About this RNA: Shown here is a 94-nucleotide sequence from Orycteropus afer, a member of the family "Small nucleolar RNA U83B". The base pairs follow the family's consensus structure. The family has 21 seed sequences and 966 matches in Rfam 15.1. About the family: U83B belongs to the C/D family of snoRNAs. U83B like U83A has no documented RNA target and they share the same host gene with the C/D box snoRNA U43 (RPL3). N.B. U83A/B/C have no sequence similarity with the U83 snoRNA that was cloned by Jady and Kiss (2000). Rfam links the family to the GO terms RNA processing and nucleolus. For this family Rfam cites "The intron-containing L3 ribosomal protein gene (RPL3): sequence analysis and identification of U43 and of two novel intronic small nucleolar RNAs" (Duga et al., Biochim Biophys Acta, 2000). By type it is a C/D-box small nucleolar RNA. Lineage of the source: Eukaryota > Tetrapoda > Theria > Orycteropus > Orycteropus afer.
[Rfam]
Nucleotides: 094
Base pairs, nucleotide, nucleotide: 001094002093003092004091005090
Number, partner (000 for none) and nucleotide at each position: 001094g002093c003092u004091g005090u006000u007000c008000a009000g010000u011000g012000a013000u014000g015000a016000g017000g018000a019000u020000c021000u022000g023000g024000a025000a026000u027000g028000u029000g030000u031000g032000c033000u034000g035000g036000g037000u038000a039000c040000a041000g042000c043000u044000c045000c046000c047000g048000a049000g050000u051000c052000a053000g054000a055000c056000u057000g058000a059000g060000g061000a062000a063000a064000c065000a066000u067000u068000c069000c070000u071000u072000g073000c074000u075000g076000c077000c078000u079000u080000c081000c082000u083000u084000c085000u086000g087000a088000g089000a090005a091004c092003a093002g094001c